[Rfam]
RNA sequence: UUAUAAGCAAAAAUUGACUUUUUAGAUUCAUUCAUUAAAUGAUGUAUUUGGUCAAUAAUAUGGACCAAAUACAUCAUUUAAUGAAUGAACCUAAAAAGUUGACUUUUGCUUAUAA
Numbered sequence: 001u002u003a004u005a006a007g008c009a010a011a012a013a014u015u016g017a018c019u020u021u022u023u024a025g026a027u028u029c030a031u032u033c034a035u036u037a038a039a040u041g042a043u044g045u046a047u048u049u050g051g052u053c054a055a056u057a058a059u060a061u062g063g064a065c066c067a068a069a070u071a072c073a074u075c076a077u078u079u080a081a082u083g084a085a086u087g088a089a090c091c092u093a094a095a096a097a098g099u100u101g102a103c104u105u106u107u108g109c110u111u112a113u114a115a
Stems, first nucleotide, its partner, number of pairs: 002114006009107004015101011027089018049067004